[Rfam]
RNA: SAM riboswitch aptamer (S box leader)
Organism: Lysinibacillus alkalisoli
RNA sequence: UUCUUAUCAAGAGAAGCGGAGGGACUGGCCCUAUGAAGCUUCAGCAACCAACAACUUUAGUCAGGUGCUAAAUCCAGCUAGCUAAUCGCUAGACAGAUGAGGA
Numbered sequence: 001u002u003c004u005u006a007u008c009a010a011g012a013g014a015a016g017c018g019g020a021g022g023g024a025c026u027g028g029c030c031c032u033a034u035g036a037a038g039c040u041u042c043a044g045c046a047a048c049c050a051a052c053a054a055c056u057u058u059a060g061u062c063a064g065g066u067g068c069u070a071a072a073u074c075c076a077g078c079u080a081g082c083u084a085a086u087c088g089c090u091a092g093a094c095a096g097a098u099g100a101g102g103a
Stems, first nucleotide, its partner, number of pairs: 001103008013042005021031003025077004043069004048065002051061002073095001078092005